RNA sequence: AAGCAAAGCCUUCAAAUCUCAAACCUCUUUAGUACAUCUUUUACCGGUUUCAUACCAAUCUCUUCCAAAAUGUCUCCCUGCUCCUGCAACUGCUGCUCUGGAAACUGCUCCAGCUGCUCCUGCGCCUCUUGCAGCGUGAGUAAUC
Numbered sequence: 001a002a003g004c005a006a007a008g009c010c011u012u013c014a015a016a017u018c019u020c021a022a023a024c025c026u027c028u029u030u031a032g033u034a035c036a037u038c039u040u041u042u043a044c045c046g047g048u049u050u051c052a053u054a055c056c057a058a059u060c061u062c063u064u065c066c067a068a069a070a071u072g073u074c075u076c077c078c079u080g081c082u083c084c085u086g087c088a089a090c091u092g093c094u095g096c097u098c099u100g101g102a103a104a105c106u107g108c109u110c111c112a113g114c115u116g117c118u119c120c121u122g123c124g125c126c127u128c129u130u131g132c133a134g135c136g137u138g139a140g141u142a143a144u145c
Stems, first nucleotide, its partner, number of pairs: 079103001081101002086096003107132002116123002
A. fumigatus sRNA Afu_254: a 145-nucleotide RNA sequence from Aspergillus brasiliensis. The family's RNA type in Rfam is small RNA. Lineage of the source: Eukaryota > Fungi > leotiomyceta > Aspergillus > Aspergillus brasiliensis.